[Rfam]
Rfam assigns this 209-nucleotide RNA to the family "RAGATH-7 RNA". For this family Rfam cites "New classes of self-cleaving ribozymes revealed by comparative genomics analysis" (Weinberg et al., Nat Chem Biol, 2015). By type it is a small RNA. The base pairs follow the family's consensus structure, which is taken from published work.
RNA sequence: AUAAUACAAUAUUAGAUAUAGAUACGCUAUACACUGCUAAGGAUAUCUAAACUGUAUUAUAAUCCACGUGGUAGAGGCAUAGUUAGGUUCGCUGUGAGUGCAACUCUAAGUAGCAACCAACCUAAGCAAGCAAUGGGAAUAACAGAACCAUUAACUAAGAAAAAUGUAUGGAGCUUGACAGUCUGACACUAACUGAACAAUAAGUGUCA
Number, nucleotide and partner (000 for none) at each position: 001a060002u059003a058004a057005u056006a055007c054008a053009a000010u051011a000012u050013u049014a048015g047016a046017u000018a000019u000020a000021g000022a000023u039024a038025c000026g037027c036028u000029a000030u000031a000032c000033a000034c000035u000036g027037c026038u024039a023040a000041g000042g000043a000044u000045a000046u016047c015048u014049a013050a012051a010052c000053u008054g007055u006056a005057u004058u003059a002060u001061a000062a000063u000064c000065c000066a000067c000068g000069u000070g000071g000072u000073a107074g106075a105076g104077g000078c096079a095080u094081a093082g092083u091084u000085a000086g000087g000088u000089u000090c000091g083092c082093u081094g080095u079096g078097a000098g000099u000100g000101c000102a000103a000104c076105u075106c074107u073108a000109a000110g000111u000112a000113g000114c000115a000116a000117c000118c000119a000120a000121c137122c136123u135124a000125a000126g000127c177128a176129a175130g174131c173132a000133a000134u000135g123136g122137g121138a000139a000140u000141a000142a000143c000144a000145g000146a000147a000148c171149c170150a169151u168152u000153a000154a000155c000156u000157a000158a000159g000160a000161a000162a000163a000164a000165u000166g000167u000168a151169u150170g149171g148172a000173g131174c130175u129176u128177g127178a000179c000180a000181g000182u000183c000184u209185g208186a207187c206188a205189c204190u203191a000192a000193c000194u000195g000196a000197a000198c000199a000200a000201u000202a000203a190204g189205u188206g187207u186208c185209a184